Background: The record is a 119-nucleotide RNA sequence from Micromonospora pisi, which matches "SAM (S-adenosyl methionine) riboswitch aptamer" in Rfam. The source organism's lineage runs through Bacteria, Actinomycetes, Micromonosporales, Micromonosporaceae and Micromonospora. The match comes from Rfam's covariance-model search (61 bits).
RNA sequence: GGUCGAAGCGGUGAACGAAGCCCCAGCUUGCUGGCCGGCAACCCUCGUCGAGUUCGCGGUGGGGUGCCCUGGGUGAUGACCGGGCCCAGCCCGAUCCGUGUGCUGGGCAAGCGCGGGCC
Numbered sequence: 001g002g003u004c005g006a007a008g009c010g011g012u013g014a015a016c017g018a019a020g021c022c023c024c025a026g027c028u029u030g031c032u033g034g035c036c037g038g039c040a041a042c043c044c045u046c047g048u049c050g051a052g053u054u055c056g057c058g059g060u061g062g063g064g065u066g067c068c069c070u071g072g073g074u075g076a077u078g079a080c081c082g083g084g085c086c087c088a089g090c091c092c093g094a095u096c097c098g099u100g101u102g103c104u105g106g107g108c109a110a111g112c113g114c115g116g117g118c119c
Stems, first nucleotide, its partner, number of pairs: 001081004005036001009033004019028002037068003042064003046059001084108007092100002